[Rfam]
RNA sequence: UCGCCCGGUUUGGCACUAGCACAUUUUUGCUUUUGUAUAACUACUUUGAGCAAUUAUGUGUAGUGCCAAUCUGGGAGA
Numbered sequence: 001u002c003g004c005c006c007g008g009u010u011u012g013g014c015a016c017u018a019g020c021a022c023a024u025u026u027u028u029g030c031u032u033u034u035g036u037a038u039a040a041c042u043a044c045u046u047u048g049a050g051c052a053a054u055u056a057u058g059u060g061u062a063g064u065g066c067c068a069a070u071c072u073g074g075g076a077g078a
Stems, first nucleotide, its partner, number of pairs: 004075005010069008019061006027053006

This 78-nucleotide RNA sequence from Chrysemys picta belongs to the Rfam family "mir-96 microRNA precursor family".
The base pairs follow the family's consensus structure, which was predicted with RNAalifold.
Its family is annotated with miRNA-mediated post-transcriptional gene silencing and RISC complex in the Gene Ontology.
NCBI's taxonomy places the organism under Eukaryota, Teleostomi, Archelosauria, Testudinata, Chrysemys picta.
A search with the family's covariance model found it, with a score of 95 bits.
A reference for the family is Houbaviy et al. (2003), "Embryonic stem cell-specific MicroRNAs", Dev Cell.